[Rfam]
RNA sequence: AUCGACCCGUAGGGAGAAACCGCUUCAGUGCGGAGCCGAAGGAGCAACCGCCCCGGAAACUCUCAGGCAAAAGGACCACGGGAAGAC
Number, nucleotide and partner (000 for none) at each position: 001a000002u000003c000004g000005a000006c082007c081008c080009g079010u078011a000012g077013g076014g000015a000016g000017a000018a000019a000020c033021c032022g031023c030024u000025u000026c000027a000028g000029u000030g023031c022032g021033g020034a000035g068036c067037c066038g064039a063040a000041g000042g062043a061044g060045c000046a000047a000048c056049c055050g000051c000052c000053c000054c000055g049056g048057a000058a000059a000060c044061u043062c042063u039064c038065a000066g037067g036068c035069a000070a000071a000072a000073g000074g000075a000076c013077c012078a010079c009080g008081g007082g006083a000084a000085g000086a000087c000
The record is an 87-nucleotide RNA sequence from Endobacterium cereale, which matches "Glycine riboswitch aptamer" in Rfam. Rfam links the family to the GO term glycine biosynthetic process. Pairs were carried over by alignment from the consensus structure.